[Rfam]
Notes
Shown here is a 139-nucleotide RNA sequence from Callorhinus ursinus, a member of the family "U4 spliceosomal RNA".
RNA sequence: AGCUUUGCGCAGUGGCAGUAUCGUAGCCAAUGAGGUUUAUCCGAGGCGCGAUUAUUGCUAAUUGAAAACUUUUCCCAUCGUAUGGGCUAGAACUUUGUACAUAGCCAUACCUAAUGUAAGGGAGGCUAAAAAAUGUAGU
Numbered sequence: 001a002g003c004u005u006u007g008c009g010c011a012g013u014g015g016c017a018g019u020a021u022c023g024u025a026g027c028c029a030a031u032g033a034g035g036u037u038u039a040u041c042c043g044a045g046g047c048g049c050g051a052u053u054a055u056u057g058c059u060a061a062u063u064g065a066a067a068a069c070u071u072u073u074c075c076c077a078u079c080g081u082a083u084g085g086g087c088u089a090g091a092a093c094u095u096u097g098u099a100c101a102u103a104g105c106c107a108u109a110c111c112u113a114a115u116g117u118a119a120g121g122g123a124g125g126c127u128a129a130a131a132a133a134u135g136u137a138g139u
Base pairs, nucleotide, nucleotide: 020052021051022050023049024048026047027046028045034042035041084112085111086110088109089108093104094103096101125139126138127137128136
Gene Ontology terms of the family: spliceosomal tri-snRNP complex assembly and U4 snRNP. Pairs were carried over by alignment from the consensus structure, which is taken from published work.